[Rfam]
RNA sequence: AAUCAUCGAAGCGACGCACUCCUCCUCCCAGUGUCGCUUUGAAGGGAUCGGCGAUACUCCUCCUCCCAAUUGCCGAUCAAGUUCAAGAGCCCGACGCAUCCUCCUCCCGCGUCGGGCUCUUUUG
Numbered sequence: 001a002a003u004c005a006u007c008g009a010a011g012c013g014a015c016g017c018a019c020u021c022c023u024c025c026u027c028c029c030a031g032u033g034u035c036g037c038u039u040u041g042a043a044g045g046g047a048u049c050g051g052c053g054a055u056a057c058u059c060c061u062c063c064u065c066c067c068a069a070u071u072g073c074c075g076a077u078c079a080a081g082u083u084c085a086a087g088a089g090c091c092c093g094a095c096g097c098a099u100c101c102u103c104c105u106c107c108c109g110c111g112u113c114g115g116g117c118u119c120u121u122u123u124g
Stems, first nucleotide, its partner, number of pairs: 007041003011037007046078010087119011

A member of the RNA family "Alphaproteobacterial ar14" from Gillisella ampelina, 124 nucleotides long. Rfam's curators put it in the seed alignment. The family's RNA type in Rfam is small RNA.